The record is a 92-nucleotide sequence from Ornithorhynchus anatinus, which matches "mir-802 microRNA precursor family" in Rfam.
On this family, see Takada et al., Nucleic Acids Res 2006: "Mouse microRNA profiles determined with a new and sensitive cloning method".
Rfam 15.1 lists 133 matches to the family in 133 species.
The family's consensus secondary structure was predicted with RNAalifold.
Taxonomically the source falls in Ornithorhynchus (Eukaryota, Teleostomi, Tetrapoda, Ornithorhynchidae).
[Rfam]
RNA sequence: UUUCUGUUUCUUGCAGUCAGUAACAAAGAUUCAUCCUUGUGUCCUGUAAGCAACAGGGAGGGUCUUUGUCACUGAGUGCAAUUAAUGGUGGC
Numbered sequence: 001u002u003u004c005u006g007u008u009u010c011u012u013g014c015a016g017u018c019a020g021u022a023a024c025a026a027a028g029a030u031u032c033a034u035c036c037u038u039g040u041g042u043c044c045u046g047u048a049a050g051c052a053a054c055a056g057g058g059a060g061g062g063u064c065u066u067u068g069u070c071a072c073u074g075a076g077u078g079c080a081a082u083u084a085a086u087g088g089u090g091g092c
Stems, first nucleotide, its partner, number of pairs: 004088005011081005017075001019073003023069010034059007041051002